RNA: SAM-I/IV (S-adenosyl methionine) riboswitch aptamer
Organism: Congregibacter litoralis
RNA sequence: CGACUGCAUCAAGAGGGGCAUAGCCCCACCAACCGCCCACUCCGGGAACGGUGGUCCAAAUGAUGCGCCAAUGGCUCUGCAUUGCAGACAUGGAACAUAAAGGAGACCUG
Number, nucleotide and partner (000 for none) at each position: 001c000002g000003a000004c000005u000006g066007c065008a064009u063010c062011a000012a000013g000014a000015g027016g026017g025018g024019c023020a000021u000022a000023g019024c018025c017026c016027c015028a055029c054030c053031a000032a000033c051034c050035g049036c000037c046038c045039a000040c000041u105042c000043c103044g000045g038046g037047a000048a000049c035050g034051g033052u000053g030054g029055u028056c000057c000058a000059a000060a000061u000062g010063a009064u008065g007066c006067g000068c093069c092070a091071a000072u000073g000074g000075c000076u000077c000078u000079g000080c000081a000082u000083u000084g000085c000086a000087g000088a000089c000090a000091u070092g069093g068094a000095a000096c000097a000098u000099a000100a000101a000102g000103g043104a000105g041106a000107c000108c000109u000110g000